[Rfam]
RNA sequence: ACGUCCUGCUCGUGAUCGUCUUCUCACCCUUCACGUGCGGGCGGAUGAAACGAGCGGCCCCCGCGAGGACGUGACUCGCGGGGGUCGCUC
Numbered sequence: 001a002c003g004u005c006c007u008g009c010u011c012g013u014g015a016u017c018g019u020c021u022u023c024u025c026a027c028c029c030u031u032c033a034c035g036u037g038c039g040g041g042c043g044g045a046u047g048a049a050a051c052g053a054g055c056g057g058c059c060c061c062c063g064c065g066a067g068g069a070c071g072u073g074a075c076u077c078g079c080g081g082g083g084g085u086c087g088c089u090c
Stems, first nucleotide, its partner, number of pairs: 002043002005041005011035005018028001052090016